[Rfam]
RNA sequence: GGUAGUAGCAAAUAUUCAAAUGAGAACUUUGAAGGCCGAAGAGGGGAAAGGUUCCAUGUGAACGGCACUUGCACAUGGGUUAGUCGAUCCUAAGAGACGGGGGAAGCCCGUCUGACAGUGUCGCGCGCGCGAGCUUCGAAAGGGAAUCGGGUUAAAAUUCCUGAACCGGGACGUGGCGGCUGACGGCAACGUUAGGGAGUCCGGAGACGUCGGCGGGGGCCUCGGGAAGAGUUAUCUUUUCUGUUUAACAGCCUGCCCACCCUGGAAACGGCUCAGCCGGAGGUAGGGUCCAGUGGCUGGAAGAGCACCGCACUUCGCGCGGUGUCCGGUGCGCCCCUGGCGGCCCUUGAAAAUCCGGAGGACCGAGUGCCUCCCACGCCCGGUCGUACUCAUAACAGCAUCAGGUCUCCAAGGUGAACAGCCUCUGGUCGA
Numbered sequence: 001g002g003u004a005g006u007a008g009c010a011a012a013u014a015u016u017c018a019a020a021u022g023a024g025a026a027c028u029u030u031g032a033a034g035g036c037c038g039a040a041g042a043g044g045g046g047a048a049a050g051g052u053u054c055c056a057u058g059u060g061a062a063c064g065g066c067a068c069u070u071g072c073a074c075a076u077g078g079g080u081u082a083g084u085c086g087a088u089c090c091u092a093a094g095a096g097a098c099g100g101g102g103g104a105a106g107c108c109c110g111u112c113u114g115a116c117a118g119u120g121u122c123g124c125g126c127g128c129g130c131g132a133g134c135u136u137c138g139a140a141a142g143g144g145a146a147u148c149g150g151g152u153u154a155a156a157a158u159u160c161c162u163g164a165a166c167c168g169g170g171a172c173g174u175g176g177c178g179g180c181u182g183a184c185g186g187c188a189a190c191g192u193u194a195g196g197g198a199g200u201c202c203g204g205a206g207a208c209g210u211c212g213g214c215g216g217g218g219g220c221c222u223c224g225g226g227a228a229g230a231g232u233u234a235u236c237u238u239u240u241c242u243g244u245u246u247a248a249c250a251g252c253c254u255g256c257c258c259a260c261c262c263u264g265g266a267a268a269c270g271g272c273u274c275a276g277c278c279g280g281a282g283g284u285a286g287g288g289u290c291c292a293g294u295g296g297c298u299g300g301a302a303g304a305g306c307a308c309c310g311c312a313c314u315u316c317g318c319g320c321g322g323u324g325u326c327c328g329g330u331g332c333g334c335c336c337c338u339g340g341c342g343g344c345c346c347u348u349g350a351a352a353a354u355c356c357g358g359a360g361g362a363c364c365g366a367g368u369g370c371c372u373c374c375c376a377c378g379c380c381c382g383g384u385c386g387u388a389c390u391c392a393u394a395a396c397a398g399c400a401u402c403a404g405g406u407c408u409c410c411a412a413g414g415u416g417a418a419c420a421g422c423c424u425c426u427g428g429u430c431g432a
Base pairs, nucleotide, nucleotide: 015033016032017031018030019029020028034430035429036428037427043410044409045408046407049390050389054078055077056076057075058074059073063071064070085386086385087384089143090142094137095136096112097111098110100109101108102107119129120128121127147164148163149162150161151160167382168381169380170379172378173377174376175375176374178371182193183192184191185190200359201358202357203356204355205354209344210343211342212341214339215338216337217336218335219334220333222329223328224327225245226244228242229241230240249299250298251297252296253295259289260288261287262286263285264284269279270278271277306324307323308322309321310320311319396405412424413423414422415421
The family of this 432-nucleotide part of an RNA from Trema andersonii is "Eukaryotic large subunit ribosomal RNA". Gene Ontology terms of the family: structural constituent of ribosome and ribosome.